This 95-nucleotide sequence from Striga asiatica belongs to the Rfam family "Small nucleolar RNA snoR26". Lineage of the source: Eukaryota > Streptophytina > Gunneridae > Lamiales > Striga. It is annotated as a C/D-box small nucleolar RNA. On this family, see Brown et al., RNA 2001: "Multiple snoRNA gene clusters from Arabidopsis". Rfam 15.1 lists 611 matches to the family in 220 species.
RNA sequence: GGAGCUUCAGAGAUGAGAGCUGAUUAAAAUCUUCAUCCUUGCACUUUGAUUGUCAGUGAAAAUAAAUAAUGGGGAAUUUACAGUCUGAGAUGCUU
Numbered sequence: 001g002g003a004g005c006u007u008c009a010g011a012g013a014u015g016a017g018a019g020c021u022g023a024u025u026a027a028a029a030u031c032u033u034c035a036u037c038c039u040u041g042c043a044c045u046u047u048g049a050u051u052g053u054c055a056g057u058g059a060a061a062a063u064a065a066a067u068a069a070u071g072g073g074g075a076a077u078u079u080a081c082a083g084u085c086u087g088a089g090a091u092g093c094u095u
Stems, first nucleotide, its partner, number of pairs: 002095004007090002